[Rfam]
RNA sequence: GAAUGAGACGAUGACUUUGUUUUGUUUCCUAAUGGUUUGAUUUGCCAGAAUGGUGACAUCUUCAAAUGUACUACCUCGAGCUAAUCAUUC
Numbered sequence: 001g002a003a004u005g006a007g008a009c010g011a012u013g014a015c016u017u018u019g020u021u022u023u024g025u026u027u028c029c030u031a032a033u034g035g036u037u038u039g040a041u042u043u044g045c046c047a048g049a050a051u052g053g054u055g056a057c058a059u060c061u062u063c064a065a066a067u068g069u070a071c072u073a074c075c076u077c078g079a080g081c082u083a084a085u086c087a088u089u090c
Stems, first nucleotide, its partner, number of pairs: 002089004039060001043058002046055001
Shown here is a 90-nucleotide RNA sequence from Trema andersonii, a member of the family "Small nucleolar RNA Z102/R77".
It scores 56 bits against the family's covariance model.
The family has 9 seed sequences and 1,346 matches in Rfam 15.1.
The family's consensus secondary structure was predicted with PFOLD.
For this family Rfam cites "The high diversity of snoRNAs in plants: identification and comparative study of 120 snoRNA genes from Oryza sativa" (Chen et al., Nucleic Acids Res, 2003).
Clan: SNORD44 clan.